[Rfam]
RNA sequence: AGAAAAAGUUUUUUGUUUGCAGAUUUAAUUGUUAGAAAAUGGCUAACAAGUUUCUACCGCCUUCCAAAAAUGGCGACAAUCCGCAAAUGCAAUUUCCUU
Number, nucleotide and partner (000 for none) at each position: 001a000002g000003a000004a000005a000006a000007a000008g000009u000010u000011u000012u000013u000014u000015g000016u000017u000018u085019g084020c083021a000022g081023a080024u079025u078026u000027a000028a000029u049030u048031g047032u046033u045034a044035g043036a000037a000038a000039a000040u000041g000042g000043c035044u034045a033046a032047c031048a030049a029050g000051u000052u000053u000054c000055u000056a000057c000058c075059g074060c073061c072062u000063u070064c000065c000066a000067a000068a000069a000070a063071u000072g061073g060074c059075g058076a000077c000078a025079a024080u023081c022082c000083g020084c019085a018086a000087a000088u000089g000090c000091a000092a000093u000094u000095u000096c000097c000098u000099u000

The record is a 99-nucleotide sequence from Weissella viridescens, which matches "Purine riboswitch aptamer" in Rfam.
Rfam links the family to the GO term purine nucleobase biosynthetic process.
The base pairs follow the family's consensus structure, which is taken from published work.